Annotation:
The record is a 108-nucleotide RNA from Rhododendron williamsianum, which matches "Small nucleolar RNA snoR100" in Rfam.

[Rfam]
RNA sequence: CAAUGAAAGAAGUAUGGUAAUGUGCACAUAAAUUGAAUUGGGUCUCUAGACCUACCCUCUCUGAUACCAUUUGGCUUUUAUUUGGGGGCAUGUUUCACAGCAAAACAG
Numbered sequence: 001c002a003a004u005g006a007a008a009g010a011a012g013u014a015u016g017g018u019a020a021u022g023u024g025c026a027c028a029u030a031a032a033u034u035g036a037a038u039u040g041g042g043u044c045u046c047u048a049g050a051c052c053u054a055c056c057c058u059c060u061c062u063g064a065u066a067c068c069a070u071u072u073g074g075c076u077u078u079u080a081u082u083u084g085g086g087g088g089c090a091u092g093u094u095u096c097a098c099a100g101c102a103a104a105a106c107a108g
Stems, first nucleotide, its partner, number of pairs: 012025004040091001042089003050081001055074002
The family's consensus secondary structure was predicted with WAR.